[Rfam]
RNA sequence: GCAGAUUCACUCUGCAUCCAGCAAGUGCUUCUUUUGUCUGUCAGAGGACAUUCCAGGGUGCUGUGGCCACCUUAACUUGUCAAGAGUGAUGCAGCUGCAUUGGGAACACAGGA
Numbered sequence: 001g002c003a004g005a006u007u008c009a010c011u012c013u014g015c016a017u018c019c020a021g022c023a024a025g026u027g028c029u030u031c032u033u034u035u036g037u038c039u040g041u042c043a044g045a046g047g048a049c050a051u052u053c054c055a056g057g058g059u060g061c062u063g064u065g066g067c068c069a070c071c072u073u074a075a076c077u078u079g080u081c082a083a084g085a086g087u088g089a090u091g092c093a094g095c096u097g098c099a100u101u102g103g104g105a106a107c108a109c110a111g112g113a
Stems, first nucleotide, its partner, number of pairs: 001041006014028004053103004058098002060095006068088003072084001